[Rfam]
A member of the RNA family "Glycine riboswitch aptamer" from Paenibacillus sp. TCA20, 113 nucleotides long. A search with the family's covariance model found it, with a score of 46 bits. Rfam links the family to the GO term glycine biosynthetic process. NCBI's taxonomy places the organism under Bacteria, Bacillati, Bacillota, Paenibacillaceae, Paenibacillus.

Nucleotides: 113
Base pairs, nucleotide, nucleotide: 005109006108007107008106009105010104012103013102020040021039023037024036025035026034042094043093044092045090046089049088050087051086
Number, partner (000 for none) and nucleotide at each position: 001000u002000g003000a004000a005109g006108a007107u008106c009105a010104a011000u012103g013102g014000g015000a016000g017000a018000g019000a020040u021039c022000g023037c024036g025035u026034g027000g028000g029000g030000a031000a032000a033000c034026c035025a036024c037023g038000g039021g040020a041000c042094a043093c044092c045090g046089a047000a048000g049088g050087a051086g052000c053000a054000a055000g056000c057000u058000g059000a060000u061000a062000a063000g064000c065000a066000c067000c068000c069000g070000g071000c072000u073000u074000a075000u076000a077000c078000a079000g080000c081000a082000g083000a084000a085000u086051c087050u088049c089046u090045c091000a092044g093043g094042u095000a096000g097000a098000a099000g100000a101000a102013c103012c104010u105009u106008g107007a108006u109005u110000c111000g112000a113000c